The record is a 140-nucleotide sequence from Hipposideros armiger, which matches "Small nucleolar RNA SNORA29" in Rfam. On this family, see Huttenhofer et al., EMBO J 2001: "RNomics: an experimental approach that identifies 201 candidates for novel, small, non-messenger RNAs in mouse". ACA29 is a member of the H/ACA class of snoRNA that guide the sites of modification of uridines to pseudouridines. Taxonomically the source falls in Hipposideros (Eukaryota, Bilateria, Eutheria, Rhinolophoidea). Clan: SNORA20 clan. Its family is annotated with nucleolus and RNA processing in the Gene Ontology. Rfam classes the family as an H/ACA-box small nucleolar RNA.
RNA sequence: AUUACAAGAUAAGAUACCCAUUUUCUCCUAAUAAUAGAUUUUAGUGGCUAUGCUUAUGGGAUAGAUUAAAAUUGCCAUGAUCUGAAGAGGGAGGAUCUAUUUGCGCCCUCCUCCUAUAUGAAAUGGCUGAACAGAAAAUU
Numbered sequence: 001a002u003u004a005c006a007a008g009a010u011a012a013g014a015u016a017c018c019c020a021u022u023u024u025c026u027c028c029u030a031a032u033a034a035u036a037g038a039u040u041u042u043a044g045u046g047g048c049u050a051u052g053c054u055u056a057u058g059g060g061a062u063a064g065a066u067u068a069a070a071a072u073u074g075c076c077a078u079g080a081u082c083u084g085a086a087g088a089g090g091g092a093g094g095a096u097c098u099a100u101u102u103g104c105g106c107c108c109u110c111c112u113c114c115u116a117u118a119u120g121a122a123a124u125g126g127c128u129g130a131a132c133a134g135a136a137a138a139u140u
Base pairs, nucleotide, nucleotide: 005059007057017047018046019044074127075126076125077124092115093114094113095112